[Rfam]
RNA sequence: UUUACCCUGGAGUGUUUGUAGGCGGAUCUAUGUCCCUGAGCCGAUAAGCACAAAUUAGGGUUAGUACUUGUUUGCUAUUGAGCAUGCUCGGCUUGUACUGAGAAGCCUACGGUAAACUUUGCUGAUCCGCCUUGAACCUAGGGUUCAAGGGCUACGACCACUACGGCACUUUGGGGUAUUC
Dot-bracket structure: ..(((((((((((((.(((............((((.((((((...............(((.(((((...(((((((.....((...(((((......)))))..))....)))))))..))))).))).............)))))).))))..........))))))))))))))))...
Numbered sequence: 001u002u003u004a005c006c007c008u009g010g011a012g013u014g015u016u017u018g019u020a021g022g023c024g025g026a027u028c029u030a031u032g033u034c035c036c037u038g039a040g041c042c043g044a045u046a047a048g049c050a051c052a053a054a055u056u057a058g059g060g061u062u063a064g065u066a067c068u069u070g071u072u073u074g075c076u077a078u079u080g081a082g083c084a085u086g087c088u089c090g091g092c093u094u095g096u097a098c099u100g101a102g103a104a105g106c107c108u109a110c111g112g113u114a115a116a117c118u119u120u121g122c123u124g125a126u127c128c129g130c131c132u133u134g135a136a137c138c139u140a141g142g143g144u145u146c147a148a149g150g151g152c153u154a155c156g157a158c159c160a161c162u163a164c165g166g167c168a169c170u171u172u173g174g175g176g177u178a179u180u181c
Stems, first nucleotide, its partner, number of pairs: 003178013017165003032152004037147006058128003062124005070117007082106002087102005
Rfam assigns this 181-nucleotide RNA sequence from Aliivibrio fischeri to the family "6S / SsrS RNA". On this family, see Wassarman and Storz, Cell 2000: "6S RNA regulates E. coli RNA polymerase activity". The family's consensus secondary structure is taken from published work. Rfam's curators write: E. coli 6S RNA was the first non coding RNA to be sequenced, but its function was unknown until recently. It consists of 184 nucleotides that fold into an extended hairpin structure with a large single-stranded internal bulge. The 6S RNA specifically associates with RNA polymerase holoenzyme containing the sigma70 specificity factor. This interaction represses expression from a sigma70-dependent promoter during stationary phase. 6S RNA homologs have recently been identified in most bacterial genomes. Many Gram-positive species have two copies of 6S RNA. In Bacillus subtilis, both copies appear to interact with RNA polymerase holoenzyme containing the housekeeping sigma factor and be expressed during different stages of growth. In many proteobacteria, 6S RNA may be processed from a transcript encoding homologs of the E. coli YgfA protein which is a putative 5-formyltetrahydrofolate cycloligase activity. By type it is a non-coding RNA gene. The sequence is in the family's curated seed alignment.